[Rfam]
RNA: glmS glucosamine-6-phosphate activated ribozyme aptamer
RNA sequence: CGGACGAUGGAAGCGCCUGAACUGCGAAGAGCAGUUGACGAGGUCGGGGGUUAUCGAAAUUUUCGGCGGGUUCCCUCGGGGAAGGAAGCGAUUCCCUCAAGGCUGUCCACAAAGACGUCGGGCGAUCGGCGGACAAAAGGGCGGCCGCGCUUCGCU
Numbered sequence: 001c002g003g004a005c006g007a008u009g010g011a012a013g014c015g016c017c018u019g020a021a022c023u024g025c026g027a028a029g030a031g032c033a034g035u036u037g038a039c040g041a042g043g044u045c046g047g048g049g050g051u052u053a054u055c056g057a058a059a060u061u062u063u064c065g066g067c068g069g070g071u072u073c074c075c076u077c078g079g080g081g082a083a084g085g086a087a088g089c090g091a092u093u094c095c096c097u098c099a100a101g102g103c104u105g106u107c108c109a110c111a112a113a114g115a116c117g118u119c120g121g122g123c124g125a126u127c128g129g130c131g132g133a134c135a136a137a138a139g140g141g142c143g144g145c146c147g148c149g150c151u152u153c154g155c156u
Base pairs, nucleotide, nucleotide: 020036021035022034023033024032025031045078046077047076048075049074054066055065056064057063079096080095081094082093083092101146102145103144104143105142106141107140116131117130118129119128120127121126